[Rfam]
RNA sequence: GUGCCAUGAUGUUCCCUGUCAACACAUCAUUCUGAGGGAGGACUGUGUGGACACUGUGAGACUGAGCACC
Numbered sequence: 001g002u003g004c005c006a007u008g009a010u011g012u013u014c015c016c017u018g019u020c021a022a023c024a025c026a027u028c029a030u031u032c033u034g035a036g037g038g039a040g041g042a043c044u045g046u047g048u049g050g051a052c053a054c055u056g057u058g059a060g061a062c063u064g065a066g067c068a069c070c
Stems, first nucleotide, its partner, number of pairs: 001069004
Dot-bracket structure: ((((.............................................................)))).
Small nucleolar RNA SNORD63: a 70-nucleotide sequence from Neodrepanis coruscans. A reference for the family is Galardi et al. (2002), "Purified box C/D snoRNPs are able to reproduce site-specific 2'-O-methylation of target RNA in vitro", Mol Cell Biol. Gene Ontology terms of the family: nucleolus and RNA processing. A search with the family's covariance model found it, with a score of 54 bits. By type it is a C/D-box small nucleolar RNA. Pairs were carried over by alignment from the consensus structure, which was predicted with PFOLD.